[Rfam]
RNA sequence: GUAUUUAAGAAGAAGUCCGCUUCUCACCUUAUGACAAGGGUCUAUGAGGUUAUUUUAGAAAAGAUUUUUUAAGUGCGGGCUUUUUUGUGUCCGCAUUUUUUAUUUAUA
Numbered sequence: 001g002u003a004u005u006u007a008a009g010a011a012g013a014a015g016u017c018c019g020c021u022u023c024u025c026a027c028c029u030u031a032u033g034a035c036a037a038g039g040g041u042c043u044a045u046g047a048g049g050u051u052a053u054u055u056u057a058g059a060a061a062a063g064a065u066u067u068u069u070u071a072a073g074u075g076c077g078g079g080c081u082u083u084u085u086u087g088u089g090u091c092c093g094c095a096u097u098u099u100u101u102a103u104u105u106a107u108a
Stems, first nucleotide, its partner, number of pairs: 011024005026050003031045003034041002074095007082087001
RNA: Ribosomal protein L20 leader
Organism: Clostridiales bacterium KA00134